[Rfam]
RNA sequence: AAAGAAGUGCGGCUUGUUGAUUUUCUUUCGAGAAGGUAGGAAAGUCCGGACACCAAAGAGCAACAUAGCGGAUAACAUCCGUCACGCGUGAGCGUAGGACAAGUGCAACAGAAAGCAAGUACAGUUCGGCUGUAGUGAAACCAGGUAAACUCUAUGUGGUGCAAUGCUAAGUAUAUCGCCAGUUAAGGUCGGCUCGGUCGUUGGCGAGGGGUAAGCAGCUAAAGUUGCAGAGCAAUUUGCAAAUCAGAUAAAUAACAAGCGCCCUCCUAGGAGGGCACAGAAUCCGGCUUAUAGCACUUCUUUUAUU
Number, nucleotide and partner (000 for none) at each position: 001a303002a302003a301004g300005a299006a298007g297008u296009g295010c294011g292012g260013c259014u258015u257016g256017u255018u254019g000020a037021u036022u035023u034024u033025c032026u031027u000028u000029c000030g000031a026032g025033a024034a023035g022036g021037u020038a000039g000040g000041a000042a290043a289044g288045u000046c287047c286048g285049g284050a283051c161052a160053c159054c158055a000056a000057a000058g195059a194060g193061c192062a000063a157064c156065a155066u154067a153068g082069c081070g080071g079072a078073u000074a000075a000076c000077a000078u072079c071080c070081g069082u068083c097084a095085c094086g093087c092088g000089u000090g000091a000092g087093c086094g085095u084096a000097g083098g152099a151100c000101a000102a000103g150104u149105g146106c145107a000108a000109c000110a000111g000112a000113a000114a000115g000116c000117a000118a000119g000120u134121a133122c132123a131124g130125u129126u000127c000128g000129g125130c124131u123132g122133u121134a120135g000136u000137g000138a000139a000140a000141c000142c000143a000144g000145g106146u105147a000148a000149a104150c103151u099152c098153u067154a066155u065156g064157u063158g054159g053160u052161g051162c000163a000164a000165u217166g216167c215168u214169a000170a000171g000172u000173a000174u000175a000176u207177c206178g205179c204180c203181a000182g000183u000184u000185a000186a000187g199188g198189u197190c196191g000192g061193c060194u059195c058196g190197g189198u188199c187200g000201u000202u000203g180204g179205c178206g177207a176208g000209g000210g000211g000212u000213a000214a168215g167216c166217a165218g000219c000220u000221a000222a000223a000224g000225u242226u241227g240228c239229a238230g237231a236232g000233c000234a000235a000236u231237u230238u229239g228240c227241a226242a225243a000244u000245c000246a000247g000248a000249u000250a000251a000252a000253u000254a018255a017256c016257a015258a014259g013260c012261g000262c000263c000264c000265u000266c000267c000268u000269a000270g000271g000272a000273g000274g000275g000276c000277a000278c000279a000280g000281a000282a000283u050284c049285c048286g047287g046288c044289u043290u042291a000292u011293a000294g010295c009296a008297c007298u006299u005300c004301u003302u002303u001304u000305a000306u000307u000
A member of the RNA family "Bacterial RNase P class A" from Soonwooa buanensis, 307 nucleotides long. Rfam classes the family as a ribozyme. Lineage of the source: Bacteria > Bacteroidota > Flavobacteriales > Weeksellaceae > Soonwooa.